[Rfam]
RNA: Small nucleolar RNA SNORD83
Organism: Ursus americanus
RNA sequence: GCCAAAUGAUGUUUAUUUGAUACAGGGAGCACUUCAGUUGCCAGGACGACUCUUAUUAUUCACCAUGACUGCAUGGCU
Number, nucleotide and partner (000 for none) at each position: 001g077002c076003c075004a074005a000006a000007u000008g000009a000010u000011g000012u000013u000014u000015a000016u000017u000018u000019g000020a000021u000022a000023c000024a000025g000026g000027g000028a000029g041030c040031a039032c000033u000034u000035c000036a000037g000038u000039u031040g030041c029042c000043a000044g000045g000046a000047c000048g000049a000050c000051u000052c000053u000054u000055a000056u000057u000058a000059u000060u000061c000062a000063c000064c000065a000066u000067g000068a000069c000070u000071g000072c000073a000074u004075g003076g002077c001078u000